[Rfam]
Rfam assigns this 132-nucleotide RNA sequence from Mus spicilegus to the family "Small nucleolar RNA SNORA17". Rfam describes the family as follows. snoRNA ACA 17 belongs to the H/ACA family of snoRNAs and is predicted to guide pseudouridylation of the 28S rRNA at positions U4659 and U4598. It shares the same host gene together with ACA43. NB This family has a high threshold value to exclude a large number of closely related sequences that do not appear to have conserved H and ACA boxes, and may be pseudogenes. The organism belongs to Mus, within Eukaryota. Rfam links the family to the GO terms RNA processing and nucleolus. A reference for the family is Ofengand and Bakin (1997), "Mapping to nucleotide resolution of pseudouridine residues in large subunit ribosomal RNAs from representative eukaryotes, prokaryotes, archaebacteria, mitochondria and chloroplasts", J Mol Biol. It scores 66 bits against the family's covariance model.
RNA sequence: CCUGCCCAUAGAAGUGUUACAGAUAUGGCUGCUAUAUCACAUGUGCAUCAGUAGGUAGCAAAUAGGGAAGAGGCCAUCCCUGUGGUUAGUGUUCUGAGCUAAGAAGAUCUUAAUAAUUGGUAGCUUUUUUUC
Numbered sequence: 001c002c003u004g005c006c007c008a009u010a011g012a013a014g015u016g017u018u019a020c021a022g023a024u025a026u027g028g029c030u031g032c033u034a035u036a037u038c039a040c041a042u043g044u045g046c047a048u049c050a051g052u053a054g055g056u057a058g059c060a061a062a063u064a065g066g067g068a069a070g071a072g073g074c075c076a077u078c079c080c081u082g083u084g085g086u087u088a089g090u091g092u093u094c095u096g097a098g099c100u101a102a103g104a105a106g107a108u109c110u111u112a113a114u115a116a117u118u119g120g121u122a123g124c125u126u127u128u129u130u131u132c
Base pairs, nucleotide, nucleotide: 003060004059005058007055009053010052014048015047020045021044024041026039027038028037068129070127071126072125073124074123076121077120083115084114086112088110089109090107092105093104094103